The family of this 99-nucleotide sequence from Camelus dromedarius is "mir-342 microRNA precursor family". Rfam links the family to the GO terms cellular response to leukemia inhibitory factor, cellular response to lipopolysaccharide and miRNA-mediated post-transcriptional gene silencing.
RNA sequence: GAACCUGGGCACGAGGUGAGGGGUGCUAUCUGUGAUUGAGGGACAUGGCACAUAGAAUUGUCUCACACAGAAAUCGCACCCGUCACCUUGGCCCACCUC
Numbered sequence: 001g002a003a004c005c006u007g008g009g010c011a012c013g014a015g016g017u018g019a020g021g022g023g024u025g026c027u028a029u030c031u032g033u034g035a036u037u038g039a040g041g042g043a044c045a046u047g048g049c050a051c052a053u054a055g056a057a058u059u060g061u062c063u064c065a066c067a068c069a070g071a072a073a074u075c076g077c078a079c080c081c082g083u084c085a086c087c088u089u090g091g092c093c094c095a096c097c098u099c
Base pairs, nucleotide, nucleotide: 012090013089014088015087016086018084019083021081022080023079024078025077026076029071030070031069032068033067034066037065038064039063040062041061